RNA: Small nucleolar RNA ACA64
Organism: Bucco capensis
Nucleotides: 124
Base pairs, nucleotide, nucleotide: 005050006049007048008047009046010041011040012039013038018033021030064117066115067114068113069112070111076105077104078103079102080101084097085096086095
Number, partner (000 for none) and nucleotide at each position: 001000a002000u003000u004000c005050a006049u007048g008047g009046u010041g011040c012039a013038u014000u015000c016000u017000u018033g019000u020000g021030u022000u023000c024000u025000c026000c027000u028000g029000u030021g031000g032000c033018c034000c035000c036000u037000g038013g039012u040011g041010c042000c043000a044000u045000a046009a047008c048007u049006g050005u051000g052000c053000c054000c055000a056000c057000a058000g059000c060000a061000g062000a063000g064117g065000g066115a067114g068113c069112a070111u071000u072000a073000a074000a075000c076105u077104c078103a079102u080101u081000g082000c083000c084097c085096a086095c087000g088000g089000g090000a091000a092000a093000g094000u095086g096085u097084g098000g099000g100000g101080a102079g103078u104077g105076a106000u107000a108000c109000c110000c111070a112069u113068g114067u115066u116000c117064c118000u119000a120000g121000a122000a123000u124000c